[Rfam]
This 181-nucleotide sequence from Pseudomonas sp. 1239 belongs to the Rfam family "Pseudomonas sRNA P1". Lineage of the source: Bacteria > Gammaproteobacteria > Pseudomonadales > Pseudomonadaceae > Pseudomonas. By type it is a non-coding RNA gene. About the family: This small RNA (sRNA) was computationally identified in the genome of the opportunistic pathogen Pseudomonas aeruginosa and its expression verified by northern blot analysis. The base pairs follow the family's consensus structure, which was predicted with RNAalifold. A search with the family's covariance model found it, with a score of 150 bits.
RNA sequence: ACCCCCGGUAUUAUUGCUGUUAUGGGUUGCAACCGAGCUUAGCCUUGUUCAUUUUUUUACACAACACCCCUGUAAAAAAUAGAAUACGGCCCGCUCAAAGUCGCUGUCUCGCUACCAAAGCAGGCCUUGUCGACGCCCUCAUUUGCAGCAAAAAUGCCGCUUCAGCGCCGUUUUAGGGCAU
Numbered sequence: 001a002c003c004c005c006c007g008g009u010a011u012u013a014u015u016g017c018u019g020u021u022a023u024g025g026g027u028u029g030c031a032a033c034c035g036a037g038c039u040u041a042g043c044c045u046u047g048u049u050c051a052u053u054u055u056u057u058u059a060c061a062c063a064a065c066a067c068c069c070c071u072g073u074a075a076a077a078a079a080u081a082g083a084a085u086a087c088g089g090c091c092c093g094c095u096c097a098a099a100g101u102c103g104c105u106g107u108c109u110c111g112c113u114a115c116c117a118a119a120g121c122a123g124g125c126c127u128u129g130u131c132g133a134c135g136c137c138c139u140c141a142u143u144u145g146c147a148g149c150a151a152a153a154a155u156g157c158c159g160c161u162u163c164a165g166c167g168c169c170g171u172u173u174u175a176g177g178g179c180a181u
Stems, first nucleotide, its partner, number of pairs: 024102002027099002035094001037092001042090003045086001047085003053079008165179002168176001